[Rfam]
RNA sequence: ACGAUCCACUAGGGGUGCCUUUCAUGAAGGCUGAGAUUAAAGUGUGACUUUAAGACCCUUUGAACCUGAUCUGGUUGAGACCAGCGUAGGGAAGUGGUGGUUGAAGGUU
Numbered sequence: 001a002c003g004a005u006c007c008a009c010u011a012g013g014g015g016u017g018c019c020u021u022u023c024a025u026g027a028a029g030g031c032u033g034a035g036a037u038u039a040a041a042g043u044g045u046g047a048c049u050u051u052a053a054g055a056c057c058c059u060u061u062g063a064a065c066c067u068g069a070u071c072u073g074g075u076u077g078a079g080a081c082c083a084g085c086g087u088a089g090g091g092a093a094g095u096g097g098u099g100g101u102u103g104a105a106g107g108u109u
Stems, first nucleotide, its partner, number of pairs: 006097005011059004016053001017031005038052005065090004071084004
Dot-bracket structure: .....(((((((((.((((((.....)))))......(((((.....))))))..)))).....((((..((((......))))..))))..)))))............
This 109-nucleotide RNA from Rossellomorea aquimaris belongs to the Rfam family "TPP riboswitch aptamer (THI element)". NCBI's taxonomy places the organism under Bacteria, Bacillati, Bacillota, Bacillaceae, Rossellomorea. From the family's description: Vitamin B(1) in its active form thiamin pyrophosphate (TPP) is an essential coenzyme that is synthesised by coupling of pyrimidine and thiazole moieties in bacteria.